[Rfam]
Fungal signal recognition particle RNA: a 282-nucleotide RNA from Magnaporthiopsis poae.
A search with the family's covariance model found it, with a score of 144 bits.
The family is grouped with related families in Rfam's "SRP clan".
RNA sequence: CAACUGUAAUGGUUAAAUCGGAAGAAGGCGCUCGAAUUUCCCAUCCGUCUGCCCCAUUCCCGUUAGAACCCUCUGAUGACGCCCAGUUCGAAUGCUGCGGUGGCCACCCACUCGCCCGGGAAACCUGCGAUCGCUGCGCGUGGCCCUAAGCAAUGAUGAUGACGCUUGAGGGAGGCUUCACUCUGCAGAGGCAUCUUCACCGUCGCAUGGCGAACUGGAUUACGAUCGUUAGGGGCUUGGGUCAGAUGGAUGAGAUGGGGAUGUCGACUUCUUUUUGUUUUU
Numbered sequence: 001c002a003a004c005u006g007u008a009a010u011g012g013u014u015a016a017a018u019c020g021g022a023a024g025a026a027g028g029c030g031c032u033c034g035a036a037u038u039u040c041c042c043a044u045c046c047g048u049c050u051g052c053c054c055c056a057u058u059c060c061c062g063u064u065a066g067a068a069c070c071c072u073c074u075g076a077u078g079a080c081g082c083c084c085a086g087u088u089c090g091a092a093u094g095c096u097g098c099g100g101u102g103g104c105c106a107c108c109c110a111c112u113c114g115c116c117c118g119g120g121a122a123a124c125c126u127g128c129g130a131u132c133g134c135u136g137c138g139c140g141u142g143g144c145c146c147u148a149a150g151c152a153a154u155g156a157u158g159a160u161g162a163c164g165c166u167u168g169a170g171g172g173a174g175g176c177u178u179c180a181c182u183c184u185g186c187a188g189a190g191g192c193a194u195c196u197u198c199a200c201c202g203u204c205g206c207a208u209g210g211c212g213a214a215c216u217g218g219a220u221u222a223c224g225a226u227c228g229u230u231a232g233g234g235g236c237u238u239g240g241g242u243c244a245g246a247u248g249g250a251u252g253a254g255a256u257g258g259g260g261a262u263g264u265c266g267a268c269u270u271c272u273u274u275u276u277g278u279u280u281u282u
Stems, first nucleotide, its partner, number of pairs: 002014003016280002019277005024271004029266002039255002042252010057068003070235003074231005080224002083218008092208004097203004102145001104143004109138001111136001112130004118125002146150001154199003158195003165190003172183003

Lineage of the source: Eukaryota > Fungi > Sordariomycetes > Magnaporthiopsis > Magnaporthiopsis poae. It is annotated as a non-coding RNA gene.